[Rfam]
RNA sequence: AAGGUCACCCUCGGGGAAGAUAACCAGGAUCAGGUGGUUUUCCCGGGGCGAGGCUCAUCCAUUGCACUCCAGAUGUGCUGACCCCAGCGAUUUCCCCAAAUGUGGAUAAGUCGGUCGCAUAAUUUGUGGCAGUGGGGGACUGUGUUGGUGCUUUCCCCUA
Numbered sequence: 001a002a003g004g005u006c007a008c009c010c011u012c013g014g015g016g017a018a019g020a021u022a023a024c025c026a027g028g029a030u031c032a033g034g035u036g037g038u039u040u041u042c043c044c045g046g047g048g049c050g051a052g053g054c055u056c057a058u059c060c061a062u063u064g065c066a067c068u069c070c071a072g073a074u075g076u077g078c079u080g081a082c083c084c085c086a087g088c089g090a091u092u093u094c095c096c097c098a099a100a101u102g103u104g105g106a107u108a109a110g111u112c113g114g115u116c117g118c119a120u121a122a123u124u125u126g127u128g129g130c131a132g133u134g135g136g137g138g139a140c141u142g143u144g145u146u147g148g149u150g151c152u153u154u155c156c157c158c159u160a
Base pairs, nucleotide, nucleotide: 001040002039004038005037006036007035008034046085047084048083050082052079053078054077056075057074058073059072088113089112090111091109093106095105096104134159135158136157137156138155139154142151143150144149

Rfam assigns this 160-nucleotide RNA from Muntiacus reevesi to the family "U1 spliceosomal RNA".
The family is grouped with related families in Rfam's "U1 clan".
The family's consensus secondary structure is taken from published work.
The family's RNA type in Rfam is spliceosomal small nuclear RNA.
About the family: U1 is a small nuclear RNA (snRNA) component of the spliceosome (involved in pre-mRNA splicing). Its 5' end forms complementary base pairs with the 5' splice junction, thus defining the 5' donor site of an intron. There are significant differences in sequence and secondary structure between metazoan and yeast U1 snRNAs, the latter being much longer (568 nucleotides as compared to 164 nucleotides in human). Nevertheless, secondary structure predictions suggest that all U1 snRNAs share a 'common core' consisting of helices I, II, the proximal region of III, and IV. This family does not contain the larger yeast sequences.